A member of the RNA family "mir-2 microRNA precursor family" from Octopus sinensis, 72 nucleotides long.
RNA sequence: UUACUGACCAAGUGGUUGUGAAUGUGCUGCUAAAUUGGAUUUUCAUAUCACAGCCUGCUUGGAUCAGUAAUA
Numbered sequence: 001u002u003a004c005u006g007a008c009c010a011a012g013u014g015g016u017u018g019u020g021a022a023u024g025u026g027c028u029g030c031u032a033a034a035u036u037g038g039a040u041u042u043u044c045a046u047a048u049c050a051c052a053g054c055c056u057g058c059u060u061g062g063a064u065c066a067g068u069a070a071u072a
Base pairs, nucleotide, nucleotide: 005066006065007064008062009061010060011059012058014055015054016053017052018051019050020049021048025047026046
Its family is annotated with RISC complex and miRNA-mediated post-transcriptional gene silencing in the Gene Ontology.
The organism belongs to Octopus, within Eukaryota.